[Rfam]
Description
Rfam assigns this 66-nucleotide RNA from Populus deltoides to the family "Plastid-clpP 5UTR RNA". Rfam 15.1 lists 2,105 matches to the family in 526 species. NCBI's taxonomy places the organism under Eukaryota, Streptophyta, Embryophyta, Tracheophyta, Populus. Plastid clpP is a non-coding RNA (ncRNA) recognised in plastids. By type it is a cis-regulatory element. The literature on the family includes a 2023 paper in Plant Commun by Richter et al., "Retrograde signaling in plants: A critical review focusing on the GUN pathway and beyond".

RNA sequence: AAUUCUGUUUGUAGGAACAAAGAGAAGCAGAUCUAUUCUAUACCAGAAAGGGUUCCGGAAACUGGU
Number, nucleotide and partner (000 for none) at each position: 001a000002a000003u022004u021005c000006u019007g018008u017009u016010u015011g000012u000013a000014g000015g010016a009017a008018c007019a006020a000021a004022g003023a000024g000025a000026a000027g000028c000029a000030g000031a000032u000033c000034u000035a000036u000037u000038c000039u000040a000041u000042a000043c065044c064045a063046g000047a000048a000049a000050g000051g000052g000053u000054u000055c000056c000057g000058g000059a000060a000061a000062c000063u045064g044065g043066u000